Purine riboswitch aptamer: a 102-nucleotide RNA from Thermotalea metallivorans. Gene Ontology term of the family: purine nucleobase biosynthetic process. The source organism's lineage runs through Bacteria, Bacillati, Peptostreptococcales, Thermotaleaceae and Thermotalea.

RNA sequence: CAGAAAAUCAGCACACUGACUCAUAUAAUUUUGGUAAUAUGGUCCAAAAGUCUCUACCAGACAACCGUAAAUUGUCUAGCUAUGGGUGAAAGUGUAUCUAGG
Number, nucleotide and partner (000 for none) at each position: 001c000002a000003g000004a000005a000006a000007a000008u000009c000010a000011g000012c000013a000014c000015a000016c000017u000018g000019a087020c086021u085022c084023a083024u082025a081026u000027a000028a000029u049030u048031u047032u046033g045034g044035u000036a000037a000038u000039a000040u000041g000042g000043u000044c034045c033046a032047a031048a030049a029050g000051u000052c000053u000054c000055u000056a000057c000058c000059a077060g076061a075062c074063a073064a072065c000066c000067g000068u000069a000070a000071a000072u064073u063074g062075u061076c060077u059078a000079g000080c000081u025082a024083u023084g022085g021086g020087u019088g000089a000090a000091a000092g000093u000094g000095u000096a000097u000098c000099u000100a000101g000102g000